[Rfam]
RNA sequence: UGGAGGACUGAGAAGGUAAGACAGUUAAAACUUUAUGCUGUAUCUUACUGGUUAUAGCCUCCAAAAUUAUAAUAGCACAACAGCAAUUCAUGUUCCCCUCGACAUGAGGGAAAGCAGUACUGCAUUUG
Dot-bracket structure: .(((((........(((((.(((((...........))))).)..))))........)))))...................((.(.(.....(((((.((.....)))))))...).).)).......
Rfam assigns this 128-nucleotide RNA sequence from Nipponia nippon to the family "Small nucleolar RNA SNORA47".